Description: This 69-nucleotide RNA from Lynx canadensis belongs to the Rfam family "Small nucleolar RNA SNORD30". Its Rfam clan is "SNORD30 clan". Gene Ontology terms of the family: RNA processing and nucleolus. Rfam classes the family as a C/D-box small nucleolar RNA. The literature on the family includes a 1996 paper in Nature by Tycowski et al., "A mammalian gene with introns instead of exons generating stable RNA products".
[Rfam]
RNA sequence: ACACGUGAUGACUUGCAUGGAAUCUCGUUCGGCUGAUAACUUGCUGUUGAGAUUGGAAAUCUGAUUUUC
Numbered sequence: 001a002c003a004c005g006u007g008a009u010g011a012c013u014u015g016c017a018u019g020g021a022a023u024c025u026c027g028u029u030c031g032g033c034u035g036a037u038a039a040c041u042u043g044c045u046g047u048u049g050a051g052a053u054u055g056g057a058a059a060u061c062u063g064a065u066u067u068u069c
Stems, first nucleotide, its partner, number of pairs: 023052005030046004